The record is a 382-nucleotide part of an RNA from Citrifermentans bemidjiense, which matches "Bacterial large subunit ribosomal RNA" in Rfam.
Pairs were carried over by alignment from the consensus structure, which is taken from published work.
It scores 2997 bits against the family's covariance model.
The source organism's lineage runs through Bacteria, Pseudomonadati, Desulfuromonadia, Citrifermentans and Citrifermentans bemidjiense.
[Rfam]
RNA sequence: GAAAAACAAGGUGAGAAACCUUGUCACCGAAAACCCAAGGUUUCCUACGUAAAGGUAAUCUGCGUAGGGUUAGUCGGUCCCUAAGGCGAGGCCGAAAGGCGUAGUUGAUGGGAAACGGGUUAAUAUUCCCGUACCACCUGUUGUUGCGAUGGGGGGACGGAGUAGGGUAGACGAUCCAGGCGCUGGUAGUCCUGGUUUAAGGUCGUAGGCGGGAGAAGGAGGCAAAUCCCUUUCUCCAUUCAACGCUGAGAGCUGAUGACGAGGGGGUAUCCCCAUAAAGUCGUUGAUCCCAUGCUUCCAAGAAAAGCCUCUAAGCUUCAGACAGCAGGUGACCGUACCGUAAACCGACUCAGGUGGGUGAGGAUAAAUGUCCUAAGGUGCU
Number, nucleotide and partner (000 for none) at each position: 001g000002a000003a000004a000005a000006a024007c023008a022009a021010g020011g019012u000013g000014a000015g000016a000017a000018a000019c011020c010021u009022u008023g007024u006025c380026a379027c378028c377029g000030a000031a000032a000033a359034c358035c357036c356037a000038a000039g339040g338041u000042u000043u000044c068045c067046u066047a065048c064049g063050u000051a000052a000053a061054g060055g000056u000057a000058a000059u000060c054061u053062g000063c049064g048065u047066a046067g045068g044069g000070u000071u000072a000073g000074u000075c335076g334077g333078u332079c000080c111081c110082u000083a000084a000085g106086g105087c104088g000089a102090g000091g100092c099093c098094g000095a000096a000097a000098g093099g092100c091101g000102u089103a000104g087105u086106u085107g000108a000109u000110g081111g080112g000113a000114a000115a132116c131117g130118g129119g128120u000121u000122a000123a000124u000125a000126u000127u000128c119129c118130c117131g116132u115133a000134c000135c331136a330137c329138c328139u327140g326141u325142u324143g323144u322145u321146g316147c315148g000149a000150u000151g311152g310153g309154g308155g000156g000157a000158c000159g298160g297161a296162g295163u000164a000165g291166g290167g289168u000169a000170g285171a284172c283173g282174a281175u000176c195177c194178a193179g192180g191181c000182g000183c000184u000185g000186g000187u000188a000189g000190u000191c180192c179193u178194g177195g176196u000197u259198u258199a000200a000201g254202g253203u252204c000205g000206u000207a000208g247209g246210c245211g000212g000213g236214a235215g234216a233217a232218g231219g230220a000221g229222g228223c000224a000225a000226a000227u000228c222229c221230c219231u218232u217233u216234c215235u214236c213237c000238a000239u000240u000241c000242a000243a000244c000245g210246c209247u208248g000249a000250g000251a000252g203253c202254u201255g000256a000257u000258g198259a197260c000261g000262a000263g276264g000265g274266g273267g272268u000269a000270u000271c000272c267273c266274c265275a000276u263277a000278a000279a000280g000281u174282c173283g172284u171285u170286g000287a000288u000289c167290c166291c165292a000293u000294g000295c162296u161297u160298c159299c000300a000301a000302g000303a000304a000305a000306a000307g000308c154309c153310u152311c151312u000313a000314a000315g147316c146317u000318u000319c000320a000321g145322a144323c143324a142325g141326c140327a139328g138329g137330u136331g135332a078333c077334c076335g075336u000337a000338c040339c039340g000341u000342a000343a000344a000345c354346c353347g000348a000349c000350u000351c000352a000353g346354g345355u000356g036357g035358g034359u033360g000361a374362g373363g372364a371365u000366a000367a000368a000369u000370g000371u364372c363373c362374u361375a000376a000377g028378g027379u026380g025381c000382u000